[Rfam]
RNA sequence: AAUUCUAAAGGUGAUGGAGUUCACCCGAAAAGCUGCUCUGCAGAUGAUGACUCCUGUAAAUGC
Numbered sequence: 001a002a003u004u005c006u007a008a009a010g011g012u013g014a015u016g017g018a019g020u021u022c023a024c025c026c027g028a029a030a031a032g033c034u035g036c037u038c039u040g041c042a043g044a045u046g047a048u049g050a051c052u053c054c055u056g057u058a059a060a061u062g063c
Stems, first nucleotide, its partner, number of pairs: 010025004016054006033043003
A member of the RNA family "Fluoride riboswitch aptamer (crcB RNA motif)" from Anoxynatronum buryatiense, 63 nucleotides long. The match comes from Rfam's covariance-model search (45 bits).